[Rfam]
Nucleotides: 144
Stems, first nucleotide, its partner, number of pairs: 006049003010045001012043006018036003052068005085101006103133006110127003
Number, partner (000 for none) and nucleotide at each position: 001000u002000u003000c004000g005000c006049a007048g008047u009000g010045a011000g012043u013042u014041g015040u016039u017038u018036c019035u020034g021000c022000a023000c024000c025000u026000a027000c028000c029000u030000u031000u032000a033000c034020u035019a036018g037000a038017a039016a040015a041014c042013a043012g044000c045010u046000a047008a048007c049006u050000a051000c052068c053067c054066u055065u056064u057000c058000u059000g060000a061000u062000a063000a064056a065055a066054a067053g068052g069000a070000u071000a072000c073000a074000a075000g076000a077000a078000a079000a080000u081000c082000a083000g084000u085101u086100a087099g088098a089097a090096c091000u092000g093000c094000a095000c096090g097089u098088u099087c100086u101085a102000a103133a104132c105131g106130c107129u108128u109000u110127g111126u112125a113000a114000g115000u116000a117000g118000a119000u120000g121000a122000a123000g124000a125112u126111a127110c128108a129107a130106g131105c132104g133103u134000a135000a136000a137000u138000g139000g140000u141000a142000a143000u144000c
Rfam assigns this 144-nucleotide RNA sequence to the family "RAGATH-19 RNA". It is annotated as a small RNA. Pairs were carried over by alignment from the consensus structure, which is taken from published work. The sequence is in the family's curated seed alignment.